Rfam assigns this 74-nucleotide RNA sequence from Novosphingobium umbonatum to the family "tRNA". The source organism's lineage runs through Bacteria, Alphaproteobacteria, Sphingomonadales, Sphingomonadaceae and Novosphingobium. A search with the family's covariance model found it, with a score of 68 bits. The base pairs follow the family's consensus structure, which is taken from published work. The family's RNA type in Rfam is transfer RNA.
[Rfam]
RNA sequence: GCGGGUGUAGCUCAGUUGGUUAGAGUAUCGGCCUGUCACGCCGAGGGUCGCGGGUUCGAGCCCCGUCACUCGCG
Numbered sequence: 001g002c003g004g005g006u007g008u009a010g011c012u013c014a015g016u017u018g019g020u021u022a023g024a025g026u027a028u029c030g031g032c033c034u035g036u037c038a039c040g041c042c043g044a045g046g047g048u049c050g051c052g053g054g055u056u057c058g059a060g061c062c063c064c065g066u067c068a069c070u071c072g073c074g
Stems, first nucleotide, its partner, number of pairs: 001073007010026004028044005050066005